[Rfam]
RNA sequence: UUAUACAACAUGGGGUGCCCCGCCAGCGGGGCUGAGAAAUACCCAUUGAACCUGCUCUCAGUUAGAACUAGCGAAGGAAUUGUUGUGGAUUUUGCUG
Numbered sequence: 001u002u003a004u005a006c007a008a009c010a011u012g013g014g015g016u017g018c019c020c021c022g023c024c025a026g027c028g029g030g031g032c033u034g035a036g037a038a039a040u041a042c043c044c045a046u047u048g049a050a051c052c053u054g055c056u057c058u059c060a061g062u063u064a065g066a067a068c069u070a071g072c073g074a075a076g077g078a079a080u081u082g083u084u085g086u087g088g089a090u091u092u093u094g095c096u097g
Base pairs, nucleotide, nucleotide: 006085007084008083009082010081011045012044013043014042016039017032018031019030020029021028051077052076053075057071058070060069061068
The family of this 97-nucleotide RNA sequence from Corynebacterium camporealensis is "TPP riboswitch aptamer (THI element)". The match comes from Rfam's covariance-model search (60 bits). NCBI's taxonomy places the organism under Bacteria, Bacillati, Actinomycetes, Mycobacteriales, Corynebacterium.